Rfam assigns this 135-nucleotide RNA from Kurthia sibirica to the family "PyrR binding site". Pairs were carried over by alignment from the consensus structure, which is taken from published work. A reference for the family is Bonner et al. (2001), "Molecular recognition of pyr mRNA by the Bacillus subtilis attenuation regulatory protein PyrR", Nucleic Acids Res. Gene Ontology terms of the family: pyrimidine nucleobase biosynthetic process and pyrimidine nucleobase transport.
RNA sequence: UUUACCUUUUAAUGAUUGCCCAGAGAGGCAAAGAAGGGUGAUUCGAUUUGAUAUGGAAAUGGCAAAUGCGCCAUCUCCCUAUCUUGUCAUAUCCUUCCUCCAGCCUCCCUAACAAUUUAGGGGGGCUUUUCUUUU
Numbered sequence: 001u002u003u004a005c006c007u008u009u010u011a012a013u014g015a016u017u018g019c020c021c022a023g024a025g026a027g028g029c030a031a032a033g034a035a036g037g038g039u040g041a042u043u044c045g046a047u048u049u050g051a052u053a054u055g056g057a058a059a060u061g062g063c064a065a066a067u068g069c070g071c072c073a074u075c076u077c078c079c080u081a082u083c084u085u086g087u088c089a090u091a092u093c094c095u096u097c098c099u100c101c102a103g104c105c106u107c108c109c110u111a112a113c114a115a116u117u118u119a120g121g122g123g124g125g126c127u128u129u130u131c132u133u134u135u
Stems, first nucleotide, its partner, number of pairs: 005037005016031005051082003055078003059074005102127011